[Rfam]
RNA sequence: CACCCCUGACAGUGGGCAAAGAGACACCUUGUUGGUGGUGGUCUUACAUCAGUCAAGGGAAGAACAGGUGGCAGUCCUUUGUUCAUCCUAGCUUGAGGCUUGGCUUGGUGGCCAAAGCUGUCUUAUGCUUAGGACUCAUAA
Dot-bracket structure: ..(((.((....(((...(((.(.((((........)))).))))...)))..)).))).....................((((..........(.....(((..((.(.......).))..)))...)..))))......
Numbered sequence: 001c002a003c004c005c006c007u008g009a010c011a012g013u014g015g016g017c018a019a020a021g022a023g024a025c026a027c028c029u030u031g032u033u034g035g036u037g038g039u040g041g042u043c044u045u046a047c048a049u050c051a052g053u054c055a056a057g058g059g060a061a062g063a064a065c066a067g068g069u070g071g072c073a074g075u076c077c078u079u080u081g082u083u084c085a086u087c088c089u090a091g092c093u094u095g096a097g098g099c100u101u102g103g104c105u106u107g108g109u110g111g112c113c114a115a116a117g118c119u120g121u122c123u124u125a126u127g128c129u130u131a132g133g134a135c136u137c138a139u140a141a
Stems, first nucleotide, its partner, number of pairs: 003059003007055002013051003019045003023042001025040004081135004095129001101125003106120002109117001

The record is a 141-nucleotide RNA from Mus spicilegus, which matches "Small nucleolar RNA SNORA48" in Rfam.
A search with the family's covariance model found it, with a score of 57 bits.
The snoRNA ACA 48 has been identified to guide pseudouridylation of the residue U3797 in the 28S rRNA subunit.
Pairs were carried over by alignment from the consensus structure, which was predicted with RNAalifold.
Taxonomically the source falls in Mus (Eukaryota, Gnathostomata, Boreoeutheria, Mus).
Rfam links the family to the GO terms RNA processing and nucleolus.
Rfam classes the family as an H/ACA-box small nucleolar RNA.